Rfam assigns this 351-nucleotide RNA to the family "GEBRO RNA". The sequence is in the family's curated seed alignment.
[Rfam]
RNA sequence: AGAUGGCUUGAUGGCGAUUGAGUAGAUAAGUUAUCAAUUAAAUAAUUCAAUCAAGAUGACUCACUUUAAGCGUGAAAGACCGCUGACAAAAGAGUCCGCACCGCUCUACGAAUUGCUAAAGGGCGAGGGCGAAAGUAGGUAAAGUGACACCACAGGACCUUCAAAACGGGCUAUGCUAAGUAGCCCAUAGCUAAGUCCUAUAUUAAGUAUAGGAUACGCUAAAAACGUGGCGAGAUGGGCUGAUACACACGAUGAGGACACGAACAGAGACCGAAAGGAAAGCAAGUAGGGCGUGCAGACGCUUGUAGAAAGUUCGUAUUAAGAUUGAAAUAUCUUAAUAGUUAGCAAUUC
Numbered sequence: 001a002g003a004u005g006g007c008u009u010g011a012u013g014g015c016g017a018u019u020g021a022g023u024a025g026a027u028a029a030g031u032u033a034u035c036a037a038u039u040a041a042a043u044a045a046u047u048c049a050a051u052c053a054a055g056a057u058g059a060c061u062c063a064c065u066u067u068a069a070g071c072g073u074g075a076a077a078g079a080c081c082g083c084u085g086a087c088a089a090a091a092g093a094g095u096c097c098g099c100a101c102c103g104c105u106c107u108a109c110g111a112a113u114u115g116c117u118a119a120a121g122g123g124c125g126a127g128g129g130c131g132a133a134a135g136u137a138g139g140u141a142a143a144g145u146g147a148c149a150c151c152a153c154a155g156g157a158c159c160u161u162c163a164a165a166a167c168g169g170g171c172u173a174u175g176c177u178a179a180g181u182a183g184c185c186c187a188u189a190g191c192u193a194a195g196u197c198c199u200a201u202a203u204u205a206a207g208u209a210u211a212g213g214a215u216a217c218g219c220u221a222a223a224a225a226c227g228u229g230g231c232g233a234g235a236u237g238g239g240c241u242g243a244u245a246c247a248c249a250c251g252a253u254g255a256g257g258a259c260a261c262g263a264a265c266a267g268a269g270a271c272c273g274a275a276a277g278g279a280a281a282g283c284a285a286g287u288a289g290g291g292c293g294u295g296c297a298g299a300c301g302c303u304u305g306u307a308g309a310a311a312g313u314u315c316g317u318a319u320u321a322a323g324a325u326u327g328a329a330a331u332a333u334c335u336u337a338a339u340a341g342u343u344a345g346c347a348a349u350u351c
Stems, first nucleotide, its partner, number of pairs: 007022006058096005069084004102125005110351009150230004168186006188221004195215008260317006271278002282306006318339007